The record is an 88-nucleotide sequence from Pseudomonas sp. HLS-6, which matches "gyrA RNA" in Rfam. The family's RNA type in Rfam is cis-regulatory element.
RNA sequence: UCGUAAGUCGUUGCAGGGCAGCAGCUUUGCGGCGGCGAGCUUCGUUCGUCCGAUCAUGGAUGUGACGGAGUUUCACCAGAAAAAGGAA
Dot-bracket structure: ......(((((((((..((....))..)))))))))(((((((((((((((......))))).))))))))))...............